[Rfam]
RNA: Purine riboswitch aptamer
RNA sequence: UUACUGUUUUCACAGGUUUCUCGUAUAUGUGCAGGAAUGGGCCUGCAUGUCUCUACCCGAUCACCGGAAUGAUCGGACUACGGGAAUAACAAGCGGUCCG
Dot-bracket structure: .................((((((((...(((((((......)))))))........(((((((......)))))))..))))))))..............